Source information:
Shown here is a 157-nucleotide sequence from Sphingobium herbicidovorans, a member of the family "6S / SsrS RNA". A search with the family's covariance model found it, with a score of 48 bits. The family's RNA type in Rfam is non-coding RNA gene. Rfam's curators write: E. coli 6S RNA was the first non coding RNA to be sequenced, but its function was unknown until recently. It consists of 184 nucleotides that fold into an extended hairpin structure with a large single-stranded internal bulge. The 6S RNA specifically associates with RNA polymerase holoenzyme containing the sigma70 specificity factor. This interaction represses expression from a sigma70-dependent promoter during stationary phase. 6S RNA homologs have recently been identified in most bacterial genomes.
[Rfam]
RNA sequence: CGGGCACUGCCUGGUACGAGCUUUAGCGAACAUCCCUGAGGCGAUAAUCACAUCCAAGGGGGCUGUCCCUGGGCGGGUCCAGGCCCGAUCUACAUGGUCCCCACCUGACGUUGAGGCGUCAGAGGAUAUUCCAGCAAACGGCCAAGGCGGUCCCGUC
Numbered sequence: 001c002g003g004g005c006a007c008u009g010c011c012u013g014g015u016a017c018g019a020g021c022u023u024u025a026g027c028g029a030a031c032a033u034c035c036c037u038g039a040g041g042c043g044a045u046a047a048u049c050a051c052a053u054c055c056a057a058g059g060g061g062g063c064u065g066u067c068c069c070u071g072g073g074c075g076g077g078u079c080c081a082g083g084c085c086c087g088a089u090c091u092a093c094a095u096g097g098u099c100c101c102c103a104c105c106u107g108a109c110g111u112u113g114a115g116g117c118g119u120c121a122g123a124g125g126a127u128a129u130u131c132c133a134g135c136a137a138a139c140g141g142c143c144a145a146g147g148c149g150g151u152c153c154c155g156u157c
Stems, first nucleotide, its partner, number of pairs: 003154002006151006012144004017140002033126003036122004041117002058102003062098005071091003074087005

Lineage of the source: Bacteria > Pseudomonadati > Sphingobiaceae > Sphingobium > Sphingobium herbicidovorans.